The family of this 77-nucleotide sequence from Tinamus guttatus is "Small nucleolar RNA SNORD53/SNORD92". By type it is a C/D-box small nucleolar RNA. NCBI's taxonomy places the organism under Eukaryota, Metazoa, Sauropsida, Dinosauria, Tinamus. Clan: SNORD52 clan. The literature on the family includes a 1996 paper in Cell by Kiss-Laszlo et al., "Site-specific ribose methylation of preribosomal RNA: a novel function for small nucleolar RNAs". The base pairs follow the family's consensus structure.
[Rfam]
RNA sequence: UUGCUGUGAUGAUACCUAUUUGGUUUCGCUUUUUACUGAUGUGCACUGCGGACAUUUCCUCUUGGCUGUCUGAGCAG
Numbered sequence: 001u002u003g004c005u006g007u008g009a010u011g012a013u014a015c016c017u018a019u020u021u022g023g024u025u026u027c028g029c030u031u032u033u034u035a036c037u038g039a040u041g042u043g044c045a046c047u048g049c050g051g052a053c054a055u056u057u058c059c060u061c062u063u064g065g066c067u068g069u070c071u072g073a074g075c076a077g
Base pairs, nucleotide, nucleotide: 001077002076003075004074
Dot-bracket structure: ((((.....................................................................))))